[Rfam]
Shown here is a 49-nucleotide RNA sequence from Longispora albida, a member of the family "L31-Actinobacteria ribosomal protein leader". It is annotated as a cis-regulatory leader. Pairs were carried over by alignment from the consensus structure, which is taken from published work.
RNA sequence: CAGGUACCGGUUCACGUCCCGCGAACGGCGCGGUGGCGACCCGGCGACC
Numbered sequence: 001c002a003g004g005u006a007c008c009g010g011u012u013c014a015c016g017u018c019c020c021g022c023g024a025a026c027g028g029c030g031c032g033g034u035g036g037c038g039a040c041c042c043g044g045c046g047a048c049c
Stems, first nucleotide, its partner, number of pairs: 003049003007044004015038004019033004